A member of the RNA family "c-di-GMP-I riboswitch aptamer" from Paenibacillus methanolicus, 91 nucleotides long. Pairs were carried over by alignment from the consensus structure, which is taken from published work.
[Rfam]
RNA sequence: UCAUGUUCAGGGCAAACCGCGCCGAAAGGGCGGGACGCAAAACUAUAGGGGCUUACCGGAGCUUGUCUCCCGUUGCCAGCCAGCUGCCGCG
Numbered sequence: 001u002c003a004u005g006u007u008c009a010g011g012g013c014a015a016a017c018c019g020c021g022c023c024g025a026a027a028g029g030g031c032g033g034g035a036c037g038c039a040a041a042a043c044u045a046u047a048g049g050g051g052c053u054u055a056c057c058g059g060a061g062c063u064u065g066u067c068u069c070c071c072g073u074u075g076c077c078a079g080c081c082a083g084c085u086g087c088c089g090c091g
Stems, first nucleotide, its partner, number of pairs: 012038002017033004022029002041085001043083002048081002050077003058070003